[Rfam]
RNA sequence: ACGACCUUACUUGAACAGGAUCUGUUCUAUAGGCUUGUUCCUCCUUAUCUUUAGCACAAAGGAGACAGGAUCACAAGUCUGGUUGAUGAGUCACACGACCUUUGAGAUCAGAGCGUGAUUAACAGCUUCCUUGGUCCUCCGGGUCCAGUCGAAGCAGUAGAGGAUCGUUCUCAGCUUGGUGUUCAUCUCGGGCUGGGAUGGUCACAAGGUUGUCUGACAGACC
Number, nucleotide and partner (000 for none) at each position: 001a038002c037003g035004a000005c033006c032007u031008u000009a000010c000011u000012u000013g027014a026015a025016c024017a023018g022019g000020a000021u000022c018023u017024g016025u015026u014027c013028u000029a000030u000031a007032g006033g005034c000035u003036u000037g002038u001039u000040c000041c000042u000043c068044c000045u000046u065047a000048u063049c062050u061051u060052u059053a000054g000055c000056a000057c000058a000059a052060a051061g050062g049063a048064g000065a046066c000067a000068g043069g000070a000071u000072c000073a000074c000075a000076a000077g222078u221079c220080u219081g218082g000083u000084u000085g000086a000087u000088g000089a000090g000091u000092c000093a000094c000095a000096c000097g000098a210099c209100c208101u207102u000103u206104g205105a000106g203107a202108u201109c200110a199111g000112a169113g168114c167115g166116u000117g000118a000119u000120u000121a000122a158123c157124a000125g155126c154127u153128u152129c151130c000131u148132u147133g146134g145135u000136c143137c142138u000139c000140c000141g000142g137143g136144u000145c134146c133147a132148g131149u000150c000151g129152a128153a127154g126155c125156a000157g123158u122159a000160g000161a000162g000163g000164a000165u000166c115167g114168u113169u112170c000171u196172c195173a194174g193175c192176u191177u190178g189179g188180u000181g000182u000183u000184c000185a000186u000187c000188u179189c178190g177191g176192g175193c174194u173195g172196g171197g000198a000199u110200g109201g108202u107203c106204a000205c104206a103207a101208g100209g099210u098211u000212g000213u000214c000215u000216g000217a000218c081219a080220g079221a078222c077223c000

Rfam assigns this 223-nucleotide RNA from Corchorus capsularis to the family "Plant small nucleolar RNA U3".
A search with the family's covariance model found it, with a score of 157 bits.
NCBI's taxonomy places the organism under Eukaryota, Streptophyta, Tracheophyta, Mesangiospermae, Corchorus.
Its family is annotated with nucleolus and RNA processing in the Gene Ontology.
The family has 24 seed sequences and 3,759 matches in Rfam 15.1.
Rfam describes the family as follows. Small nucleolar RNAs (snoRNAs) are involved in the processing and modification of rRNA in the nucleolus.
The base pairs follow the family's consensus structure, which is taken from published work.
For this family Rfam cites "The uRNA database" (Zwieb, Nucleic Acids Res, 1997).